[Rfam]
The family of this 53-nucleotide RNA sequence from Paracoccus alkenifer is "serC leader".
This family is a putative regulatory RNA structure that is found upstream of the serC-serA operon in some alpha-proteobacteria. The final stem of the structure overlaps the ribosome binding site of the serC reading frame.
Rfam classes the family as a cis-regulatory leader.
RNA sequence: CAGCGGGACACCCUUCCCCAACGAAGGGCUUUUUAGCUGGAAGGCUAACCAUG
Number, nucleotide and partner (000 for none) at each position: 001c000002a000003g000004c000005g000006g000007g000008a000009c000010a000011c028012c027013c026014u025015u024016c023017c000018c000019c000020a000021a000022c000023g016024a015025a014026g013027g012028g011029c000030u000031u000032u000033u048034u047035a046036g045037c044038u043039g000040g000041a000042a000043g038044g037045c036046u035047a034048a033049c000050c000051a000052u000053g000